[Rfam]
RNA sequence: GGCAGCUUCAAUUCCGUAGUGCAUUGCAGUGUAGACCGUACGAACACGACUGCAAGCAUUGUGGGAGUGAAGCGGACCG
Numbered sequence: 001g002g003c004a005g006c007u008u009c010a011a012u013u014c015c016g017u018a019g020u021g022c023a024u025u026g027c028a029g030u031g032u033a034g035a036c037c038g039u040a041c042g043a044a045c046a047c048g049a050c051u052g053c054a055a056g057c058a059u060u061g062u063g064g065g066a067g068u069g070a071a072g073c074g075g076a077c078c079g
Base pairs, nucleotide, nucleotide: 006072007071008070009069010068013065014064015063016062017061020058021057022056024055025054026053027052028051
Shown here is a 79-nucleotide RNA from Anopheles sinensis, a member of the family "mir-932 microRNA precursor family". Rfam links the family to the GO terms miRNA-mediated post-transcriptional gene silencing and RISC complex. It scores 65 bits against the family's covariance model. For this family Rfam cites "Evolutionary flux of canonical microRNAs and mirtrons in Drosophila" (Berezikov et al., Nat Genet, 2010).